[Rfam]
A member of the RNA family "mir-1017 microRNA precursor family" from Drosophila busckii, 79 nucleotides long. Lineage of the source: Eukaryota > Neoptera > Aparaglossata > Brachycera > Dorsilopha. Pairs were carried over by alignment from the consensus structure. A reference for the family is Westholm and Lai (2011), "Mirtrons: microRNA biogenesis via splicing", Biochimie. A search with the family's covariance model found it, with a score of 55 bits.
RNA sequence: GUGAGUUUAGUAGAGUUUAAAGCUAAACACUUUGCUCGCUACGACGCCAAUGCGAAAGCUCUACCCAAACUCACUAUCA
Numbered sequence: 001g002u003g004a005g006u007u008u009a010g011u012a013g014a015g016u017u018u019a020a021a022g023c024u025a026a027a028c029a030c031u032u033u034g035c036u037c038g039c040u041a042c043g044a045c046g047c048c049a050a051u052g053c054g055a056a057a058g059c060u061c062u063a064c065c066c067a068a069a070c071u072c073a074c075u076a077u078c079a
Stems, first nucleotide, its partner, number of pairs: 001074008010064009
Dot-bracket structure: ((((((((.(((((((((.....................................)))))))))..)))))))).....